[Rfam]
RNA: BsrC
Organism: Rummeliibacillus stabekisii
RNA sequence: UAGAUGUAAAAAACCUCUAUUUCAUCCUUACAGCUCGCCUUGUCCGUACCAGUGUGAAUUAGGGUUGCAAAAAUCAA
Numbered sequence: 001u002a003g004a005u006g007u008a009a010a011a012a013a014c015c016u017c018u019a020u021u022u023c024a025u026c027c028u029u030a031c032a033g034c035u036c037g038c039c040u041u042g043u044c045c046g047u048a049c050c051a052g053u054g055u056g057a058a059u060u061a062g063g064g065u066u067g068c069a070a071a072a073a074u075c076a077a
Stems, first nucleotide, its partner, number of pairs: 022057003027052002029048003033044001035042001